[Rfam]
The family of this 176-nucleotide sequence from Desulfosporosinus youngiae is "Lysine riboswitch aptamer". The match comes from Rfam's covariance-model search (84 bits). Lineage of the source: Bacteria > Clostridia > Eubacteriales > Desulfitobacteriaceae > Desulfosporosinus youngiae. Rfam describes the family as follows. Riboswitches are metabolite binding domains within certain messenger RNAs that serve as precision sensors for their corresponding targets.
RNA sequence: AGAACUGAUAGAGGUGCAUUGUACAAUCAGUAUCCGAAGUUGUUAAGGUUUACGUAAGACCGUAGCUUCGGUGAAAGGUGUAGAUGCCGAAGUUGGUCCCAAUUACGUGGGGACUGGGCUGGUUGAACAAAAUAAGAUUUGUUCAAUUGUCGCGUUUGCGGAGAGCUAUCUAUAUU
Dot-bracket structure: ......(((((....(((((.((((........((((((((((..................)))))))))).......)))))))))...((((((((((.........))))))).)))(((((((((((......))))))))))).((((....))))....)))))......